UnaL2 LINE 3' element: a 54-nucleotide RNA sequence. The family's consensus secondary structure is taken from published work. About the family: The eel long interspersed element (LINE) UnaL2 and its partner short interspersed element (SINE) share a conserved 3' tail containing a stem-loop that is critical for their retrotransposition. Presumably, the first step of retrotransposition is the recognition of their 3' tails by UnaL2-encoded reverse transcriptase. The solution structure of a 17-nucleotide RNA derived from the 3' tail of UnaL2 was determined by NMR. By type it is a cis-regulatory element.
RNA sequence: AAAAACAACAACUGUAAGUCGCUUUGGAUAAAAGCGUCUGCUAAAUGGCAUAUU
Numbered sequence: 001a002a003a004a005a006c007a008a009c010a011a012c013u014g015u016a017a018g019u020c021g022c023u024u025u026g027g028a029u030a031a032a033a034g035c036g037u038c039u040g041c042u043a044a045a046u047g048g049c050a051u052a053u054u
Stems, first nucleotide, its partner, number of pairs: 013043001014041003020036006